[Rfam]
Rfam assigns this 267-nucleotide RNA sequence from Aerosakkonema funiforme to the family "Group I catalytic intron". The literature on the family includes a 1990 paper in Annu Rev Biochem by Cech, "Self-splicing of group I introns". From the family's description: Group I catalytic introns are large self-splicing ribozymes. They catalyse their own excision from mRNA, tRNA and rRNA precursors in a wide range of organisms. The core secondary structure consists of 9 paired regions (P1-P9). Rfam links the family to the GO term Group I intron splicing. Pairs were carried over by alignment from the consensus structure, which is taken from published work. It scores 74 bits against the family's covariance model.
RNA sequence: CAACGGACUUAGGAAACUGAGCCUUGAUAGAGAAAUCUGUCAAGUGACCGCUCUCAAAUUCAGGGAAACCUAAAUCUGGCGACAGACAAGGCAAUCCUGAGCCAAGCCUAAAAAUUUUAGAUUUGAGAUUUUAGAUUUUAGAUCGGCGCUCAAUCCAAAAUCGAACAUCCAAAAUCCAAAAUUGAGGGAAGGUGCAGAGACCCGACGGGAGCUACCCUAACGUGAAGGCGAGGGUAAAGGGAGGGUCCAAUUCUCAAAGCCUGGUAA
Numbered sequence: 001c002a003a004c005g006g007a008c009u010u011a012g013g014a015a016a017c018u019g020a021g022c023c024u025u026g027a028u029a030g031a032g033a034a035a036u037c038u039g040u041c042a043a044g045u046g047a048c049c050g051c052u053c054u055c056a057a058a059u060u061c062a063g064g065g066a067a068a069c070c071u072a073a074a075u076c077u078g079g080c081g082a083c084a085g086a087c088a089a090g091g092c093a094a095u096c097c098u099g100a101g102c103c104a105a106g107c108c109u110a111a112a113a114a115u116u117u118u119a120g121a122u123u124u125g126a127g128a129u130u131u132u133a134g135a136u137u138u139u140a141g142a143u144c145g146g147c148g149c150u151c152a153a154u155c156c157a158a159a160a161u162c163g164a165a166c167a168u169c170c171a172a173a174a175u176c177c178a179a180a181a182u183u184g185a186g187g188g189a190a191g192g193u194g195c196a197g198a199g200a201c202c203c204g205a206c207g208g209g210a211g212c213u214a215c216c217c218u219a220a221c222g223u224g225a226a227g228g229c230g231a232g233g234g235u236a237a238a239g240g241g242a243g244g245g246u247c248c249a250a251u252u253c254u255c256a257a258a259g260c261c262u263g264g265u266a267a
Stems, first nucleotide, its partner, number of pairs: 005024002008021005028039003050212004055207001060100006069091003101193002107187003113182001115180003197248001199247005215234004221228001254267001256265001
Description: Taxonomically the source falls in Aerosakkonema funiforme (Bacteria, Bacillati, Cyanobacteriota, Oscillatoriophycideae).